[Rfam]
RNA sequence: CGGUACCUUCGGGGUAGGGUGAAAUUCCCAACCGGCGGUGAUAAAACAUUUGUUUUUUAGUCCGUGACCCGUAGGGGGUAAUCCUUACGGUGGAUCCGGUGAAAUUCCGGAACCGACAGUACAGUCUGGAUGGGAGAAGGAACAA
Numbered sequence: 001c002g003g004u005a006c007c008u009u010c011g012g013g014g015u016a017g018g019g020u021g022a023a024a025u026u027c028c029c030a031a032c033c034g035g036c037g038g039u040g041a042u043a044a045a046a047c048a049u050u051u052g053u054u055u056u057u058u059a060g061u062c063c064g065u066g067a068c069c070c071g072u073a074g075g076g077g078g079u080a081a082u083c084c085u086u087a088c089g090g091u092g093g094a095u096c097c098g099g100u101g102a103a104a105u106u107c108c109g110g111a112a113c114c115g116a117c118a119g120u121a122c123a124g125u126c127u128g129g130a131u132g133g134g135a136g137a138a139g140g141a142a143c144a145a
Stems, first nucleotide, its partner, number of pairs: 003143002006140005017029003031125002033115002035065004060113002069090002095111005117128003